[Rfam]
RNA sequence: UUAAAGGAUUUUUUAAAAUCCACUAUUAUUGAUUUGAACGUUAUAU
Numbered sequence: 001u002u003a004a005a006g007g008a009u010u011u012u013u014u015a016a017a018a019u020c021c022a023c024u025a026u027u028a029u030u031g032a033u034u035u036g037a038a039c040g041u042u043a044u045a046u
Base pairs, nucleotide, nucleotide: 006021007020008019009018010017011016
Background: Shown here is a 46-nucleotide RNA sequence from Acanthosepion pharaonis, a member of the family "Histone 3' UTR stem-loop". The base pairs follow the family's consensus structure, which is taken from published work. Rfam 15.1 lists 44,596 matches to the family in 976 species. A search with the family's covariance model found it, with a score of 35 bits. The family's RNA type in Rfam is cis-regulatory element.